Background
pan motif: a 94-nucleotide sequence. Pairs were carried over by alignment from the consensus structure, which is taken from published work. It is annotated as a cis-regulatory element.
[Rfam]
RNA sequence: UGCACAGUAUCAUUGGGAGUACUGUAGUGUGUUGGUUAAAUGAAUGGAAUAGCAAUCUAGAGGCUUGGAUUUGUAACCAAAUCAAGACAUCAGG
Numbered sequence: 001u002g003c004a005c006a007g008u009a010u011c012a013u014u015g016g017g018a019g020u021a022c023u024g025u026a027g028u029g030u031g032u033u034g035g036u037u038a039a040a041u042g043a044a045u046g047g048a049a050u051a052g053c054a055a056u057c058u059a060g061a062g063g064c065u066u067g068g069a070u071u072u073g074u075a076a077c078c079a080a081a082u083c084a085a086g087a088c089a090u091c092a093g094g
Stems, first nucleotide, its partner, number of pairs: 001029003004025005011019001061090001063088001064086005070081003